[Rfam]
Rfam assigns this 67-nucleotide RNA sequence from Duganella sp. Leaf126 to the family "SAH (S-adenosyl-L-homocysteine) riboswitch aptamer". A search with the family's covariance model found it, with a score of 60 bits. Lineage of the source: Bacteria > Pseudomonadota > Betaproteobacteria > Burkholderiales > Duganella. For this family Rfam cites "Riboswitches that sense S-adenosylhomocysteine and activate genes involved in coenzyme recycling" (Wang et al., Mol Cell, 2008). Pairs were carried over by alignment from the consensus structure, which is taken from published work.

RNA sequence: UGUUCCGAGGAGCGCUGCGACGAAUCCUUUUCGCCAGGCUCGGAAUCUGCAACCGCGCUCACGUUAC
Numbered sequence: 001u002g003u004u005c006c007g008a009g010g011a012g013c014g015c016u017g018c019g020a021c022g023a024a025u026c027c028u029u030u031u032c033g034c035c036a037g038g039c040u041c042g043g044a045a046u047c048u049g050c051a052a053c054c055g056c057g058c059u060c061a062c063g064u065u066a067c
Base pairs, nucleotide, nucleotide: 002046003045004044005043006042007041008040021033022032023031024030